[Rfam]
RNA sequence: CCCUGUAUUCCAAAGUGAUUGUGGGCUGCCAUGCCCUGGUCAUUGAUACUGCAGUGAGAGGAUUCGGAAAGCUUUUCCCUGUGUUUAGGGGAUUCACAUUCGUACUUGCCAAACCCUGGUGUUUUCCCACA
Numbered sequence: 001c002c003c004u005g006u007a008u009u010c011c012a013a014a015g016u017g018a019u020u021g022u023g024g025g026c027u028g029c030c031a032u033g034c035c036c037u038g039g040u041c042a043u044u045g046a047u048a049c050u051g052c053a054g055u056g057a058g059a060g061g062a063u064u065c066g067g068a069a070a071g072c073u074u075u076u077c078c079c080u081g082u083g084u085u086u087a088g089g090g091g092a093u094u095c096a097c098a099u100u101c102g103u104a105c106u107u108g109c110c111a112a113a114c115c116c117u118g119g120u121g122u123u124u125u126c127c128c129a130c131a
Base pairs, nucleotide, nucleotide: 001056003054004053005052006051007050009048014044015043016042017041018040019039020038021037023036024035025034026033066127067126068125069124070123071122072121083114084113085112086111089107090106091105
RNA: Small nucleolar RNA SNORA71
Organism: Mus musculus